Plastid-psbA-1 3UTR RNA: a 119-nucleotide RNA. The base pairs follow the family's consensus structure, which was predicted with LocARNA. Plastid psbA-1 is a non-coding RNA (ncRNA) present in plastids.
[Rfam]
RNA sequence: GUUGAAGCUCCAUCUACAAAUGGAUAAGACUUUGGUCUUGGUGUAUAUGAGUUUUUGAAAGUAAGGGGAGCAAUAACAAAACUCUUGUUUUAGCAAGAGGUUGUUAUUGCUCCUUUUUU
Numbered sequence: 001g002u003u004g005a006a007g008c009u010c011c012a013u014c015u016a017c018a019a020a021u022g023g024a025u026a027a028g029a030c031u032u033u034g035g036u037c038u039u040g041g042u043g044u045a046u047a048u049g050a051g052u053u054u055u056u057g058a059a060a061g062u063a064a065g066g067g068g069a070g071c072a073a074u075a076a077c078a079a080a081a082c083u084c085u086u087g088u089u090u091u092a093g094c095a096a097g098a099g100g101u102u103g104u105u106a107u108u109g110c111u112c113c114u115u116u117u118u119u
Stems, first nucleotide, its partner, number of pairs: 009024005063115003068112009079102002082099005